[Rfam]
RNA sequence: GCCAUCCAAAACAACGGAAGCCCUACCUCUCUUCCGUCCUUGCGGCUCCGUAGACCGCGCCAGUGUGAAUCAGAACUUCUAGCAACAG
Numbered sequence: 001g002c003c004a005u006c007c008a009a010a011a012c013a014a015c016g017g018a019a020g021c022c023c024u025a026c027c028u029c030u031c032u033u034c035c036g037u038c039c040u041u042g043c044g045g046c047u048c049c050g051u052a053g054a055c056c057g058c059g060c061c062a063g064u065g066u067g068a069a070u071c072a073g074a075a076c077u078u079c080u081a082g083c084a085a086c087a088g
Stems, first nucleotide, its partner, number of pairs: 035067002039063002041059005047053001

The family of this 88-nucleotide RNA sequence from Paenibacillus albicereus is "BsrC".
For this family Rfam cites "Novel small RNA-encoding genes in the intergenic regions of Bacillus subtilis" (Saito et al., Gene, 2008).
By type it is a small RNA.
The match comes from Rfam's covariance-model search (77 bits).
The 301 nucleotide sequence from Kouji Nakamura has been trimmed to a highly conserved ~85 nucleotide long core to form this family.
Pairs were carried over by alignment from the consensus structure, which was predicted with CMfinder.